[Rfam]
Notes:
This 411-nucleotide RNA from Planctomycetes bacterium MalM25 belongs to the Rfam family "Bacterial RNase P class A". By type it is a ribozyme. The organism belongs to Planctomycetota, within Bacteria.

RNA sequence: CGAGAGGACCGGGCGACCGCCGGUGGGAGAGGGUCCCGAUGGGAAACCGCUCCUGCGGGAGGAAAGUCCGGGCGGAGUAGGACAGGGUGGUGGGUAACGCCCACCGGCCGCGAGGUUAGGGAAAGUGCAGCAGAAAGCAGACCGCCGAUGGGGGCGCCGAUCGCUUGCGGUCGAUGCUUCACAGGCAAGGGUGAAACGGUGAGGUAAGAGCUCACCAGCGGGCGUGGUGACACGCCCGGCUAGGUAAACCCCACCCGACGCAAGGCCAAACAGGGGGCAGAGCUUGUCCGGCUCGUUAUGACCUCCGGGUGGGCCGCUCGAGGCGGCGGGCAACCGUCGUCCUAGAAGAAUGGUCGCUGCGGGGCGCUUCGGCGUCCCGGACAAAACCCGGCUUACAGGUCCUCUCGGGGG
Numbered sequence: 001c002g003a004g005a006g007g008a009c010c011g012g013g014c015g016a017c018c019g020c021c022g023g024u025g026g027g028a029g030a031g032g033g034u035c036c037c038g039a040u041g042g043g044a045a046a047c048c049g050c051u052c053c054u055g056c057g058g059g060a061g062g063a064a065a066g067u068c069c070g071g072g073c074g075g076a077g078u079a080g081g082a083c084a085g086g087g088u089g090g091u092g093g094g095u096a097a098c099g100c101c102c103a104c105c106g107g108c109c110g111c112g113a114g115g116u117u118a119g120g121g122a123a124a125g126u127g128c129a130g131c132a133g134a135a136a137g138c139a140g141a142c143c144g145c146c147g148a149u150g151g152g153g154g155c156g157c158c159g160a161u162c163g164c165u166u167g168c169g170g171u172c173g174a175u176g177c178u179u180c181a182c183a184g185g186c187a188a189g190g191g192u193g194a195a196a197c198g199g200u201g202a203g204g205u206a207a208g209a210g211c212u213c214a215c216c217a218g219c220g221g222g223c224g225u226g227g228u229g230a231c232a233c234g235c236c237c238g239g240c241u242a243g244g245u246a247a248a249c250c251c252c253a254c255c256c257g258a259c260g261c262a263a264g265g266c267c268a269a270a271c272a273g274g275g276g277g278c279a280g281a282g283c284u285u286g287u288c289c290g291g292c293u294c295g296u297u298a299u300g301a302c303c304u305c306c307g308g309g310u311g312g313g314c315c316g317c318u319c320g321a322g323g324c325g326g327c328g329g330g331c332a333a334c335c336g337u338c339g340u341c342c343u344a345g346a347a348g349a350a351u352g353g354u355c356g357c358u359g360c361g362g363g364g365c366g367c368u369u370c371g372g373c374g375u376c377c378c379g380g381a382c383a384a385a386a387c388c389c390g391g392c393u394u395a396c397a398g399g400u401c402c403u404c405u406c407g408g409g410g411g
Base pairs, nucleotide, nucleotide: 001407002406003405004404005403006402007401008400009399010398011396012358013357014356015355016354017353018352020059021058023056024055025054026053027052028051064394065393066392068391069390070389071388072387073260074259080294081293083291085256086255087254088253089252090104091103092102093101094100105119106117107116108115109114120251121250125249126248127245128244142190143189144186145185146184149181150180151179152178198216199215200214201213202212203211218240219238220237221236222235223234224233225232226231264315265314266313267312274306275305276304277303289295322341323340324339325338326337327336328335329334
Dot-bracket structure: ((((((((((((((((((.((.((((((......................)))))).))....[[[.[[[[[((.....[[.[.((((((((((.....)))))(((((....)))).)((...((((.............(((((..((((.........................))))..)))..)).......((((((.......)))))).(((((((((....)))))))).)...))..)))))))))..))...((((......((((...........(.].]]).......)))).....))))......((((((((....))))))))..........)))))))............................]]]]]]]].).))))))))))....